[Rfam]
RNA: HIV Rev response element
Organism: Lentivirus simimdef
RNA sequence: ACCAGGAAAAGCUAAAAGACACACAGUGACUAGACAAAAAAGAGCAGCCUUUGGACUAGGUGCGCUGUUUCUUGGGUUUCUUGGAGCAGCAGGGAGCACUAUGGGCGCAGCGUCAAUAACGCUGACGGUACAGGCCCGGAAAUUAUUAUCUGGGAUAGUGCAGCAGCAGAAUAAUCUGCUGAGAGCAAUAGAGGCGCAACAACACUUGCUGCAACUCUCAGUUUGGGGCAUUAAACAGCUCCAAGCAAGAGUCCUUGCUAUAGAAAGAUACCUGAGGGACCAGCAAAUCCUAGGCCUAUGGGGCUGCUCAGGAAAAUCUGUGUGUUACACCAAUGUGCCUUGGA
Number, nucleotide and partner (000 for none) at each position: 001a000002c343003c342004a341005g340006g339007a000008a000009a336010a000011g000012c000013u000014a000015a000016a000017a000018g000019a000020c000021a000022c000023a000024c000025a000026g330027u329028g328029a323030c322031u000032a319033g318034a317035c000036a000037a000038a000039a000040a000041a000042g309043a308044g307045c306046a305047g304048c303049c302050u000051u000052u000053g000054g000055a000056c293057u292058a291059g290060g289061u000062g000063c000064g000065c000066u000067g000068u000069u279070u278071c277072u276073u274074g273075g272076g271077u270078u268079u267080c000081u265082u000083g000084g000085a000086g261087c000088a259089g258090c257091a256092g000093g000094g000095a000096g161097c160098a159099c158100u157101a156102u132103g131104g000105g000106c127107g126108c124109a123110g122111c121112g120113u119114c000115a000116a000117u000118a000119a113120c112121g111122c110123u109124g108125a000126c107127g106128g000129u000130a000131c103132a102133g000134g000135c153136c152137c000138g150139g149140a000141a147142a146143u000144u000145a000146u142147u141148a000149u139150c138151u000152g136153g135154g000155a000156u101157a100158g099159u098160g097161c096162a000163g000164c181165a180166g179167c178168a177169g176170a175171a000172u000173a000174a000175u170176c169177u168178g167179c166180u165181g164182a255183g254184a000185g252186c251187a000188a000189u000190a000191g217192a216193g215194g000195c000196g212197c211198a210199a000200c208201a207202a206203c000204a000205c000206u202207u201208g200209c000210u198211g197212c196213a000214a000215c193216u192217c191218u000219c000220a000221g246222u245223u244224u243225g242226g241227g240228g239229c238230a000231u000232u000233a000234a000235a000236c000237a000238g229239c228240u227241c226242c225243a224244a223245g222246c221247a000248a000249g000250a000251g186252u185253c000254c183255u182256u091257g090258c089259u088260a000261u086262a000263g000264a000265a081266a000267g079268a078269u000270a077271c076272c075273u074274g073275a000276g072277g071278g070279a069280c000281c000282a000283g000284c000285a000286a000287a000288u000289c060290c059291u058292a057293g056294g000295c000296c000297u000298a000299u000300g000301g000302g049303g048304c047305u046306g045307c044308u043309c042310a000311g000312g000313a000314a000315a000316a000317u034318c033319u032320g000321u000322g030323u029324g000325u000326u000327a000328c028329a027330c026331c000332a000333a000334u000335g000336u009337g000338c000339c006340u005341u004342g003343g002344a000